Shown here is a 75-nucleotide RNA from Alligator mississippiensis, a member of the family "Mammalian CPEB3 ribozyme". Pairs were carried over by alignment from the consensus structure, which is taken from published work. Lineage of the source: Eukaryota > Eumetazoa > Archelosauria > Alligatorinae > Alligator. Rfam describes the family as follows. The mammalian CPEB3 ribozyme is a self cleaving RNA located in the second intron of the CPEB3 gene which belongs to a family of genes regulating messenger RNA polyadenylation. The match comes from Rfam's covariance-model search (39 bits).
RNA sequence: UCAAAAGUUCAAGGCCAGAGCAGAAGCGCUCACGGUACAGACCUGUCAGAUUCCAAUGAAUUGGUGAAUUCUGCU
Numbered sequence: 001u002c003a004a005a006a007g008u009u010c011a012a013g014g015c016c017a018g019a020g021c022a023g024a025a026g027c028g029c030u031c032a033c034g035g036u037a038c039a040g041a042c043c044u045g046u047c048a049g050a051u052u053c054c055a056a057u058g059a060a061u062u063g064g065u066g067a068a069u070u071c072u073g074c075u
Stems, first nucleotide, its partner, number of pairs: 013043002015040001019075007026038001028036001047064001049062005